[Rfam]
RNA sequence: CUGUGGCUGGAACCGGUGCUAAAGGGCCUUUAACACCGGCUGGUGUUACGCGCCGGUGUUAAAGGGUCCCUUUAGCACCGGUUCCAGCCACGGA
Numbered sequence: 001c002u003g004u005g006g007c008u009g010g011a012a013c014c015g016g017u018g019c020u021a022a023a024g025g026g027c028c029u030u031u032a033a034c035a036c037c038g039g040c041u042g043g044u045g046u047u048a049c050g051c052g053c054c055g056g057u058g059u060u061a062a063a064g065g066g067u068c069c070c071u072u073u074a075g076c077a078c079c080g081g082u083u084c085c086a087g088c089c090a091c092g093g094a
Base pairs, nucleotide, nucleotide: 003091004090005089006088007087008086009085010084011083012082013081014080015079016078017077018076019075020074021073022072023071024070025069026068029065030064032060033059034058036056037055043049044048
A member of the RNA family "MIR5387 microRNA precursor family" from Sorghum bicolor, 94 nucleotides long. A search with the family's covariance model found it, with a score of 76 bits. Rfam links the family to the GO terms RISC complex and miRNA-mediated post-transcriptional gene silencing.